This 84-nucleotide sequence from Pongo abelii belongs to the Rfam family "mir-548 microRNA precursor family". Lineage of the source: Eukaryota > Vertebrata > Sarcopterygii > Eutheria > Pongo. Pairs were carried over by alignment from the consensus structure, which was predicted with WAR.
RNA sequence: UAUUAGGUUGCUGCAAAAGUAAUCGUGGUCUUUGCCAUUAAAAGUAAUGGCAAAGACCACGAUUACUUUUGCACUGGCCUAAUA
Numbered sequence: 001u002a003u004u005a006g007g008u009u010g011c012u013g014c015a016a017a018a019g020u021a022a023u024c025g026u027g028g029u030c031u032u033u034g035c036c037a038u039u040a041a042a043a044g045u046a047a048u049g050g051c052a053a054a055g056a057c058c059a060c061g062a063u064u065a066c067u068u069u070u071g072c073a074c075u076g077g078c079c080u081a082a083u084a
Base pairs, nucleotide, nucleotide: 001084002083003082004081005080006079007078008077009076010075012073013072014071015070016069017068018067019066020065021064022063023062024061025060026059027058028057029056030055031054032053033052034051035050036049037048038047039046040045